[Rfam]
RNA sequence: GGGCACACUGUGUUAUCAGUGAGGUGCAAGCUGGUCGUUGCUAUGGUAAUCCUGUUUAGUACGAGAGGAACCGCAGGUUCAGACAUUUGGUAUAUGUGCCUGGUCGAUCGGCCAAUGGUGCGAAGCUACCAUCUGAGGGAUUAAGACUGAACGCCUCUAAGUCUGAAUCCCACCCAAAGAUGCAACGAUACACUACGGCCUGCCACAUGGAUAGGCAACUAUAGCACUUCCAUCUGCGAGGAUUAGGACAGGGCCAGCGUGCCUUGCCACUCGUAGUUGGUCUGGCAACAGCAGUGCUAAGCCAGAGCGUUGACCAUAACCAUGCGCAUCGGAUUACAAUGAUGCUGUAUGGGGGUUGAUACGAUAUCCAAUUGUGGAAUGAGUGUGGAGGCACAAAAUCGUUUGUAGACGACUUAAUGUUUUGUCGGGGAGACGUGAGUAUUCGAGCAGCUAUCACACUGCGAGGUAUUGAGUCCUAUCCCUACUAGACGUAAUGAUUUGG
Number, nucleotide and partner (000 for none) at each position: 001g000002g000003g000004c000005a000006c000007a000008c000009u000010g000011u000012g000013u000014u000015a000016u000017c000018a000019g000020u000021g000022a000023g000024g000025u000026g000027c000028a000029a000030g000031c000032u000033g000034g189035u188036c187037g186038u185039u184040g183041c182042u000043a000044u176045g175046g174047u000048a000049a079050u000051c077052c076053u075054g074055u073056u000057u000058a000059g000060u000061a000062c000063g000064a000065g000066a000067g000068g000069a000070a000071c000072c000073g055074c054075a053076g052077g051078u000079u049080c135081a134082g133083a132084c000085a000086u000087u000088u128089g127090g126091u000092a000093u000094a000095u122096g121097u120098g119099c118100c000101u114102g113103g112104u111105c110106g000107a000108u000109c000110g105111g104112c103113c102114a101115a000116u000117g000118g099119u098120g097121c096122g095123a000124a000125g000126c090127u089128a088129c000130c000131a000132u083133c082134u081135g080136a000137g171138g170139g169140a000141u000142u000143a000144a164145g163146a162147c161148u160149g000150a000151a000152c000153g000154c000155c000156u000157c000158u000159a000160a148161g147162u146163c145164u144165g000166a000167a000168u000169c139170c138171c137172a000173c000174c046175c045176a044177a000178a000179g000180a000181u000182g041183c040184a039185a038186c037187g036188a035189u034190a000191c000192a000193c000194u000195a000196c000197g000198g392199c391200c390201u389202g000203c387204c000205a000206c000207a000208u000209g000210g000211a000212u000213a000214g000215g000216c000217a000218a000219c000220u000221a000222u000223a000224g000225c000226a000227c000228u000229u000230c000231c000232a000233u000234c000235u000236g000237c000238g000239a000240g000241g000242a000243u000244u000245a000246g000247g000248a000249c000250a000251g000252g000253g000254c000255c000256a000257g000258c000259g000260u000261g000262c000263c000264u000265u000266g000267c000268c000269a000270c000271u000272c000273g000274u000275a000276g000277u000278u000279g000280g000281u000282c000283u000284g000285g000286c000287a000288a000289c000290a000291g000292c000293a000294g000295u000296g000297c000298u000299a000300a000301g000302c000303c000304a000305g000306a000307g000308c000309g000310u000311u000312g000313a000314c000315c000316a000317u000318a000319a000320c000321c000322a000323u000324g000325c000326g000327c000328a000329u000330c000331g000332g000333a000334u000335u000336a000337c000338a000339a000340u000341g000342a000343u000344g000345c000346u000347g000348u000349a000350u000351g000352g000353g000354g000355g000356u000357u000358g000359a000360u000361a000362c000363g000364a000365u000366a000367u000368c000369c000370a000371a000372u000373u000374g000375u000376g000377g000378a000379a000380u000381g000382a000383g000384u000385g000386u000387g203388g000389a201390g200391g199392c198393a000394c000395a000396a500397a499398a498399u497400c496401g000402u416403u000404u000405g413406u000407a000408g000409a000410c000411g000412a000413c405414u000415u000416a402417a000418u000419g000420u000421u000422u000423u491424g490425u489426c488427g000428g482429g481430g480431a000432g475433a474434c000435g000436u000437g000438a000439g469440u468441a467442u466443u000444c465445g000446a000447g462448c461449a460450g459451c000452u000453a000454u000455c000456a000457c000458a000459c450460u449461g448462c447463g000464a000465g444466g442467u441468a440469u439470u000471g000472a000473g000474u433475c432476c000477u000478a000479u000480c430481c429482c428483u000484a000485c000486u000487a000488g426489a425490c424491g423492u000493a000494a000495u000496g400497a399498u398499u397500u396501g000502g000